Overview:
The record is a 35-nucleotide sequence from Algoriphagus aquimarinus, which matches "DUF805b RNA" in Rfam. It scores 43 bits against the family's covariance model. The family's RNA type in Rfam is cis-regulatory element. The family's consensus secondary structure is taken from published work.
RNA sequence: AAGGGAGAUGCCGAAAACCCUUUUCAGAGUAGGCA
Numbered sequence: 001a002a003g004g005g006a007g008a009u010g011c012c013g014a015a016a017a018c019c020c021u022u023u024u025c026a027g028a029g030u031a032g033g034c035a
Stems, first nucleotide, its partner, number of pairs: 002021004010034003